[Rfam]
RNA sequence: GCCGGUUAUCCGGUAUUGCAGAAGCGUGUGUAUGUAGCUUUAACAAGCUCACGCCAAUCAAUCUUAAUUUGUCAGCGACGUCCUGUUGGGAUACUGACAGGAUUUCAAACAUGCCAAAGGGUAGUAUCUUUGGUAGACCUUGAACCCUUGGUAAAAGGUGGCGAGAAUUGAUUGAGAAAGCAUUAGAUUAUCAAUAAGGCAGGCACAAAGUCAGCGGGACUACAAUUGCGAAGCUUGGUUUGGUACAAGUGGAACAGUCUCAGCCAAGUCUGGAAGGCAUUCCGGACGAACCAAAGAGAUAAACGCACCUCAAAGUCACUGGCUCACGUUGACCCGUAGAAAUACGGCUAUAACUGAUACGUACCGUACAAGUAGCCUAAAACGUGUAUGACCAUUGCAAUUAAUGUGGAAAUAAUCGCAACCGUUAGGUGAAAGUUGAAGGAUAAAUCCUUCCGGUGGCAAAACUGGGCAAGAGAUAAGAAGUCGCUCUUCUUAUUGCGACUUGCCUAGAUCCGUGGCUGAAUAAUUGACGAUUUAACAAGUUUAAGUGGCUAAUAACCACCUGCAACAUGUGGAAGUAG
Numbered sequence: 001g002c003c004g005g006u007u008a009u010c011c012g013g014u015a016u017u018g019c020a021g022a023a024g025c026g027u028g029u030g031u032a033u034g035u036a037g038c039u040u041u042a043a044c045a046a047g048c049u050c051a052c053g054c055c056a057a058u059c060a061a062u063c064u065u066a067a068u069u070u071g072u073c074a075g076c077g078a079c080g081u082c083c084u085g086u087u088g089g090g091a092u093a094c095u096g097a098c099a100g101g102a103u104u105u106c107a108a109a110c111a112u113g114c115c116a117a118a119g120g121g122u123a124g125u126a127u128c129u130u131u132g133g134u135a136g137a138c139c140u141u142g143a144a145c146c147c148u149u150g151g152u153a154a155a156a157g158g159u160g161g162c163g164a165g166a167a168u169u170g171a172u173u174g175a176g177a178a179a180g181c182a183u184u185a186g187a188u189u190a191u192c193a194a195u196a197a198g199g200c201a202g203g204c205a206c207a208a209a210g211u212c213a214g215c216g217g218g219a220c221u222a223c224a225a226u227u228g229c230g231a232a233g234c235u236u237g238g239u240u241u242g243g244u245a246c247a248a249g250u251g252g253a254a255c256a257g258u259c260u261c262a263g264c265c266a267a268g269u270c271u272g273g274a275a276g277g278c279a280u281u282c283c284g285g286a287c288g289a290a291c292c293a294a295a296g297a298g299a300u301a302a303a304c305g306c307a308c309c310u311c312a313a314a315g316u317c318a319c320u321g322g323c324u325c326a327c328g329u330u331g332a333c334c335c336g337u338a339g340a341a342a343u344a345c346g347g348c349u350a351u352a353a354c355u356g357a358u359a360c361g362u363a364c365c366g367u368a369c370a371a372g373u374a375g376c377c378u379a380a381a382a383c384g385u386g387u388a389u390g391a392c393c394a395u396u397g398c399a400a401u402u403a404a405u406g407u408g409g410a411a412a413u414a415a416u417c418g419c420a421a422c423c424g425u426u427a428g429g430u431g432a433a434a435g436u437u438g439a440a441g442g443a444u445a446a447a448u449c450c451u452u453c454c455g456g457u458g459g460c461a462a463a464a465c466u467g468g469g470c471a472a473g474a475g476a477u478a479a480g481a482a483g484u485c486g487c488u489c490u491u492c493u494u495a496u497u498g499c500g501a502c503u504u505g506c507c508u509a510g511a512u513c514c515g516u517g518g519c520u521g522a523a524u525a526a527u528u529g530a531c532g533a534u535u536u537a538a539c540a541a542g543u544u545u546a547a548g549u550g551g552c553u554a555a556u557a558a559c560c561a562c563c564u565g566c567a568a569c570a571u572g573u574g575g576a577a578g579u580a581g
Stems, first nucleotide, its partner, number of pairs: 007578001009576004013571002016568006024054005036049004056173006075110001077106002081102009112135008120125001138151002142147001180562001183541002192532001195529001198528001199520001202365002205362001210358005215321002218317004234249004257300005268287007276306001324388001334347005369435001375430006440452003455514002458465001466511001468508002472504002475502001476497001477495007549561003
Description
The record is a 581-nucleotide RNA from Lactobacillus xujianguonis, which matches "ROOL RNA" in Rfam. It scores 141 bits against the family's covariance model. Rfam's curators write: Firmicutes, Fusobacteria (1 example), Tenericutes (1 example). Lineage of the source: Bacteria > Bacillota > Bacilli > Lactobacillales > Lactobacillus. The family's RNA type in Rfam is small RNA.